[Rfam]
RNA sequence: GGGAGUGGUUGAGUAGCUGGUGCUCUUCCCGGUCUUCAAAACCGAGUGGGCGGCACGUGAUGUCGCUGGUAGGUUCGAUUCCUAUCCACUCCC
Numbered sequence: 001g002g003g004a005g006u007g008g009u010u011g012a013g014u015a016g017c018u019g020g021u022g023c024u025c026u027u028c029c030c031g032g033u034c035u036u037c038a039a040a041a042c043c044g045a046g047u048g049g050g051c052g053g054c055a056c057g058u059g060a061u062g063u064c065g066c067u068g069g070u071a072g073g074u075u076c077g078a079u080u081c082c083u084a085u086c087c088a089c090u091c092c093c
Base pairs, nucleotide, nucleotide: 001093002092003091004090005089006088007087008086012027013026015024016023017022030044031043032042033041049067050066051065052064053063070084071083072082073081
This 93-nucleotide RNA sequence from Tepidibacillus fermentans belongs to the Rfam family "Selenocysteine transfer RNA".
A search with the family's covariance model found it, with a score of 68 bits.
The base pairs follow the family's consensus structure, which is taken from published work.